RNA sequence: CAACCGGUACAGGACUGGCGGAUCAGUGGAAUAACCACGUGGACUGUACACGGUAUAAGCCGACCGCCUGGGCAAAGCUA
Numbered sequence: 001c002a003a004c005c006g007g008u009a010c011a012g013g014a015c016u017g018g019c020g021g022a023u024c025a026g027u028g029g030a031a032u033a034a035c036c037a038c039g040u041g042g043a044c045u046g047u048a049c050a051c052g053g054u055a056u057a058a059g060c061c062g063a064c065c066g067c068c069u070g071g072g073c074a075a076a077g078c079u080a
Base pairs, nucleotide, nucleotide: 004052007049008048009047010046011045012044015041017068018067019066020065021064026038027037028036029035059073060072061071

ZMP/ZTP riboswitch aptamer (pfl RNA motif): an 80-nucleotide sequence from Anaerospora hongkongensis. A search with the family's covariance model found it, with a score of 60 bits. The base pairs follow the family's consensus structure, which is taken from published work.